[Rfam]
RNA sequence: CACUUAACGCCUGAAAGCUUGACUCAACCUGUGCAUCGUCAAGGUGAGCAAAGUUUCAGGUGUGUCAGUGG
Dot-bracket structure: .(((.(.(((((((.(..((..((((.(((...........))))))).))..).)))))))..).)))..